[Rfam]
RNA sequence: UGAACCGUCUCGCUUAAUCUCCGAUAUUCGGAGAACGGGGGAACCGAUACAGGAAUAGCUGGCAAUCAUGCUGCGCUCCACUGUAUUUGAUUUCUUUUUGGGUCUUUGGGGUGAAUUUGAAGGCAGCCGCCAUGAGCGGGUGACUUGAGAUAGGGCGUCUCUCUUACGUCCGAACCCGACAGCUAACUCCGUAAGCGUAAGUAAGAGAGGCA
Numbered sequence: 001u002g003a004a005c006c007g008u009c010u011c012g013c014u015u016a017a018u019c020u021c022c023g024a025u026a027u028u029c030g031g032a033g034a035a036c037g038g039g040g041g042a043a044c045c046g047a048u049a050c051a052g053g054a055a056u057a058g059c060u061g062g063c064a065a066u067c068a069u070g071c072u073g074c075g076c077u078c079c080a081c082u083g084u085a086u087u088u089g090a091u092u093u094c095u096u097u098u099u100g101g102g103u104c105u106u107u108g109g110g111g112u113g114a115a116u117u118u119g120a121a122g123g124c125a126g127c128c129g130c131c132a133u134g135a136g137c138g139g140g141u142g143a144c145u146u147g148a149g150a151u152a153g154g155g156c157g158u159c160u161c162u163c164u165u166a167c168g169u170c171c172g173a174a175c176c177c178g179a180c181a182g183c184u185a186a187c188u189c190c191g192u193a194a195g196c197g198u199a200a201g202u203a204a205g206a207g208a209g210g211c212a
Base pairs, nucleotide, nucleotide: 011197012196013195014194018034019033020032021031022030023029035192036191037190038189039188040187045108046107109177110176111175117150118149153171154170155169156168
Rfam assigns this 212-nucleotide sequence from Paenibacillus uliginis to the family "c-di-AMP riboswitch aptamer (ydaO/yuaA leader)". A search with the family's covariance model found it, with a score of 73 bits. NCBI's taxonomy places the organism under Bacteria, Bacillota, Bacilli, Paenibacillus, Paenibacillus uliginis.